Shown here is a 125-nucleotide sequence from Providencia sneebia, a member of the family "Phenylalanine leader peptide". The source organism's lineage runs through Bacteria, Pseudomonadati, Pseudomonadota, Gammaproteobacteria and Providencia sneebia. For this family Rfam cites "Nucleotide sequence of the leader region of the phenylalanine operon of Escherichia coli" (Zurawski et al., Proc Natl Acad Sci U S A, 1978). It scores 61 bits against the family's covariance model.
Nucleotides: 125
Base pairs, nucleotide, nucleotide: 016093017092019090021088022087023086024085025084026083027082028081029080031079032078033077034076036074037073038072039071042057058068060066061065097119098118099117100116101115102114103113104112105111
Number, partner (000 for none) and nucleotide at each position: 001000u002000c003000g004000a005000a006000c007000a008000u009000g010000a011000a012000a013000a014000u015000c016093g017092u018000u019090g020000c021088u022087u023086u024085u025084c026083g027082u028081u029080u030000c031079u032078u033077u034076u035000u036074u037073u038072a039071c040000u041000u042057u043000a044000g045000c046000g047000c048000c049000u050000g051000a052000a053000u054000a055000a056000u057042g058068g059000g060066g061065g062000c063000u064000c065061u066060u067000a068058c069000g070000c071039g072038u073037a074036a075000g076034a077033a078032a079031a080029a081028a082027a083026u084025g085024a086023a087022a088021a089000g090019u091000u092017a093016c094000g095000c096000u097119g098118a099117a100116g101115c102114c103113u104112c105111c106000u107000a108000a109000u110000u111105g112104g113103a114102g115101g116100c117099u118098u119097u120000u121000u122000u123000g124000u125000u

The family's RNA type in Rfam is cis-regulatory leader.